c-di-GMP-I riboswitch aptamer: an 87-nucleotide sequence from Thermanaeromonas toyohensis.
RNA sequence: ACCGUUUAAGGGCAAACCCGCCGAAAGGCGGGGGCGCAAAGCCACGGGCCUAAGGCUUUUAAGGGCUAUGGCAGCCGGGUUGCCGGU
Numbered sequence: 001a002c003c004g005u006u007u008a009a010g011g012g013c014a015a016a017c018c019c020g021c022c023g024a025a026a027g028g029c030g031g032g033g034g035c036g037c038a039a040a041g042c043c044a045c046g047g048g049c050c051u052a053a054g055g056c057u058u059u060u061a062a063g064g065g066c067u068a069u070g071g072c073a074g075c076c077g078g079g080u081u082g083c084c085g086g087u
Stems, first nucleotide, its partner, number of pairs: 012037002017032006040081004045077003048072003055066004

NCBI's taxonomy places the organism under Bacteria, Bacillati, Neomoorellaceae, Thermanaeromonas, Thermanaeromonas toyohensis. The base pairs follow the family's consensus structure, which is taken from published work.